[Rfam]
RNA: SAM riboswitch aptamer (S box leader)
Organism: Bacillus sp. MUM 13
RNA sequence: UACUUAUCGAGAGAGGUGGAGGGACUGGCCCUUUGAAGCCCGGCAGCCGCUGACACAGUCAGAAUGGUGCCAAUUCCAGCAGAGUCAUGCACUCUGGCAGAUAAGCA
Numbered sequence: 001u002a003c004u005u006a007u008c009g010a011g012a013g014a015g016g017u018g019g020a021g022g023g024a025c026u027g028g029c030c031c032u033u034u035g036a037a038g039c040c041c042g043g044c045a046g047c048c049g050c051u052g053a054c055a056c057a058g059u060c061a062g063a064a065u066g067g068u069g070c071c072a073a074u075u076c077c078a079g080c081a082g083a084g085u086c087a088u089g090c091a092c093u094c095u096g097g098c099a100g101a102u103a104a105g106c107a
Stems, first nucleotide, its partner, number of pairs: 001107001003105006013041001015040003021031003025079004042071004047067002050062003075099001080096006